[Rfam]
RNA: SAM riboswitch aptamer (S box leader)
RNA sequence: GAUUUAUAAAGAAGUGGCGAGAGAUCAGGCUCUGAGACCCACUGGCAACCCUCCGGCAGGCGGAGAAGGUGCCAAAUCCUGGCCCGGUGAAUGGAUCAUCGGGGGAUAUAAAUU
Numbered sequence: 001g002a003u004u005u006a007u008a009a010a011g012a013a014g015u016g017g018c019g020a021g022a023g024a025u026c027a028g029g030c031u032c033u034g035a036g037a038c039c040c041a042c043u044g045g046c047a048a049c050c051c052u053c054c055g056g057c058a059g060g061c062g063g064a065g066a067a068g069g070u071g072c073c074a075a076a077u078c079c080u081g082g083c084c085c086g087g088u089g090a091a092u093g094g095a096u097c098a099u100c101g102g103g104g105g106a107u108a109u110a111a112a113u114u
Base pairs, nucleotide, nucleotide: 001114002113003112004111005110006109007108008107013043014042015041016040017039021032022031023030026081027080028079029078044073045072046071047070049069050068051065052064053063054062077106083103084102085101086100087099088098089097090096